Annotation:
The family of this 61-nucleotide RNA from Octopus sinensis is "Trypanosomatid snoRNA TB9Cs1H3". Rfam 15.1 lists 40 matches to the family in 14 species.

RNA sequence: UGCCACCACCCUUUUGCUGCUGCUGCUGCUGGUGUUGCACAGUAGCCUGAGGGGUGGGCGA
Numbered sequence: 001u002g003c004c005a006c007c008a009c010c011c012u013u014u015u016g017c018u019g020c021u022g023c024u025g026c027u028g029c030u031g032g033u034g035u036u037g038c039a040c041a042g043u044a045g046c047c048u049g050a051g052g053g054g055u056g057g058g059c060g061a
Base pairs, nucleotide, nucleotide: 006057007056008055009054010053011052012051019043020042021041022040
Dot-bracket structure: .....(((((((......((((.................)))).......)))))))....
Rfam classes the family as an H/ACA-box small nucleolar RNA.